[Rfam]
RNA sequence: CUUUCAAAUAGAGGAGCGGUCUGAAGGUAAUGGCAAAGUAUGAAGCCCUUCUUUUGCCAUGAAUAGCAGAUUGCCGAAGGAAGACAGAAGAGGGCCUAUUCUGUAUUUCCUGGUGAAAAGGCACAAAGCCUAUCACUGUCAUGUAGAACUACAUGGAGCGCUAUUUAUGUU
Numbered sequence: 001c002u003u004u005c006a007a008a009u010a011g012a013g014g015a016g017c018g019g020u021c022u023g024a025a026g027g028u029a030a031u032g033g034c035a036a037a038g039u040a041u042g043a044a045g046c047c048c049u050u051c052u053u054u055u056g057c058c059a060u061g062a063a064u065a066g067c068a069g070a071u072u073g074c075c076g077a078a079g080g081a082a083g084a085c086a087g088a089a090g091a092g093g094g095c096c097u098a099u100u101c102u103g104u105a106u107u108u109c110c111u112g113g114u115g116a117a118a119a120g121g122c123a124c125a126a127a128g129c130c131u132a133u134c135a136c137u138g139u140c141a142u143g144u145a146g147a148a149c150u151a152c153a154u155g156g157a158g159c160g161c162u163a164u165u166u167a168u169g170u171u
Stems, first nucleotide, its partner, number of pairs: 006166006016074008030060008078111006084104006112137004117133001119131004139156007
RNA: Lysine riboswitch aptamer